[Rfam]
RNA sequence: GGGUCAGUUUAGCCUGGCAGUUACUUCAUGUCUGAUACACAUUCAACUCGCUUCUAGAAGUUCGAGACCCAUGGGCACUGCCUGGCCUUUAA
Numbered sequence: 001g002g003g004u005c006a007g008u009u010u011a012g013c014c015u016g017g018c019a020g021u022u023a024c025u026u027c028a029u030g031u032c033u034g035a036u037a038c039a040c041a042u043u044c045a046a047c048u049c050g051c052u053u054c055u056a057g058a059a060g061u062u063c064g065a066g067a068c069c070c071a072u073g074g075g076c077a078c079u080g081c082c083u084g085g086c087c088u089u090u091a092a
Stems, first nucleotide, its partner, number of pairs: 002087006012076004017072001020069001025066003
The family of this 92-nucleotide RNA from Salvator merianae is "Vault RNA". Rfam's curators write: This family of RNAs are found as part of the enigmatic vault ribonucleoprotein complex. The complex consists of a major vault protein (MVP), two minor vault proteins (VPARP and TEP1), and several small untranslated RNA molecules. It has been suggested that the vault complex is involved in drug resistance. The family has 73 seed sequences and 2,873 matches in Rfam 15.1. A search with the family's covariance model found it, with a score of 42 bits. For this family Rfam cites "Evolution of Vault RNAs" (Stadler et al., Mol Biol Evol, 2009). Pairs were carried over by alignment from the consensus structure, which is taken from published work.